[Rfam]
RNA sequence: GGAUGUCAGGGCAGUCUGGCUGCAACAUCUAUCAUCCCACUGAUGAUCAGGUUGAUUGAGCUGACCUGGCUGGCUUGGUGGGUGUCCACUUCCUCCUUAAUGUUCCAUGUGCAUCCCUACCAAAGCUGCACACCUGUUGAAGAGGGUAAUAUUCCCCAUGGAGAUGUUCAUCAGUCAAGGGUAUACAUUAGCCCUGCCUACUGCUAGAACCAACCUCCAAAGAAGCUCAAGGUUUAUGGCUAUUUAUGCUGUAACUGCAGUUUCUCUAAUGAUUUUGCAGUGAUCUGUCAGAGAUCUAAAGAAAAUAUUUUCUGAGUGG
Numbered sequence: 001g002g003a004u005g006u007c008a009g010g011g012c013a014g015u016c017u018g019g020c021u022g023c024a025a026c027a028u029c030u031a032u033c034a035u036c037c038c039a040c041u042g043a044u045g046a047u048c049a050g051g052u053u054g055a056u057u058g059a060g061c062u063g064a065c066c067u068g069g070c071u072g073g074c075u076u077g078g079u080g081g082g083u084g085u086c087c088a089c090u091u092c093c094u095c096c097u098u099a100a101u102g103u104u105c106c107a108u109g110u111g112c113a114u115c116c117c118u119a120c121c122a123a124a125g126c127u128g129c130a131c132a133c134c135u136g137u138u139g140a141a142g143a144g145g146g147u148a149a150u151a152u153u154c155c156c157c158a159u160g161g162a163g164a165u166g167u168u169c170a171u172c173a174g175u176c177a178a179g180g181g182u183a184u185a186c187a188u189u190a191g192c193c194c195u196g197c198c199u200a201c202u203g204c205u206a207g208a209a210c211c212a213a214c215c216u217c218c219a220a221a222g223a224a225g226c227u228c229a230a231g232g233u234u235u236a237u238g239g240c241u242a243u244u245u246a247u248g249c250u251g252u253a254a255c256u257g258c259a260g261u262u263u264c265u266c267u268a269a270u271g272a273u274u275u276u277g278c279a280g281u282g283a284u285c286u287g288u289c290a291g292a293g294a295u296c297u298a299a300a301g302a303a304a305a306u307a308u309u310u311u312c313u314g315a316g317u318g319g
Base pairs, nucleotide, nucleotide: 001106002105003104006099008098009097010096011095014091018089025085026084027083028082029081030080031079032078033077035073036072037069038068039067042066044064045061047059114164115163116161117160121136122135125133138158139157144155145154146153190262191261192260196256199253200252201251203249204248212243221241222240225237285319286318287317289314290313291312292311293310294308295307297305

This 319-nucleotide RNA sequence from Toxostoma redivivum belongs to the Rfam family "7SK RNA". The organism belongs to Toxostoma, within Eukaryota. 7SK was discovered as an abundant small nuclear RNA in the mid-70s but a possible function has only recently been suggested. Two independent studies have found that 7SK RNA binds the CDK9/cyclin T complex (known as elongation factor P-TEFb). P-TEFb activates transcription by phosphorylating the C-terminal domain of RNA polymerase II. This process is negatively regulated by the 7SK RNP. The secondary structure of 7SK RNA shown here was proposed by Wasserman and Steitz on the basis of chemical modification and enzymatic cleavage experiments. This family contains a number of annotated pseudogenes and 7SK derived repeats. It scores 99 bits against the family's covariance model. It is annotated as a non-coding RNA gene.